int-alpA RNA: a 70-nucleotide sequence from Leptothrix cholodnii. Lineage of the source: Bacteria > Pseudomonadota > Betaproteobacteria > Sphaerotilaceae > Leptothrix cholodnii. It is annotated as a small RNA.
RNA sequence: GCCCCAGCUAGGCCCGCGAACCGAAGAGCGGGAUUCCUUCCCCCGCCUGCUGGGGCACCUUCUUGGAAGA
Numbered sequence: 001g002c003c004c005c006a007g008c009u010a011g012g013c014c015c016g017c018g019a020a021c022c023g024a025a026g027a028g029c030g031g032g033a034u035u036c037c038u039u040c041c042c043c044c045g046c047c048u049g050c051u052g053g054g055g056c057a058c059c060u061u062c063u064u065g066g067a068a069g070a
Stems, first nucleotide, its partner, number of pairs: 001056008011022002028046005037069005